[Rfam]
RNA sequence: UAUGAGAAGUUUCUUCGAGUAAUUACUCCUAAAUCAAAGGACAUGGGGUGCUUACCGAUGGGAUUGGUCGGAAACAAUCAAUCCUCCCGAUUUCUGAAAUGGCUCAGAAUGACUUGGAAAGGAGAAAGGAAAAAGACUAA
Numbered sequence: 001u002a003u004g005a006g007a008a009g010u011u012u013c014u015u016c017g018a019g020u021a022a023u024u025a026c027u028c029c030u031a032a033a034u035c036a037a038a039g040g041a042c043a044u045g046g047g048g049u050g051c052u053u054a055c056c057g058a059u060g061g062g063a064u065u066g067g068u069c070g071g072a073a074a075c076a077a078u079c080a081a082u083c084c085u086c087c088c089g090a091u092u093u094c095u096g097a098a099a100u101g102g103c104u105c106a107g108a109a110u111g112a113c114u115u116g117g118a119a120a121g122g123a124g125a126a127a128g129g130a131a132a133a134a135g136a137c138u139a140a
Base pairs, nucleotide, nucleotide: 003134011126012125013124014123015122016121019055020054021053022052024050025049026048027047028046029045034041035040060085061084062083063082064081065080066079067078068077070075086117087116

Rfam assigns this 140-nucleotide sequence from Carboxylicivirga sediminis to the family "Molybdenum/Tungsten riboswitch aptamer (Moco RNA motif)".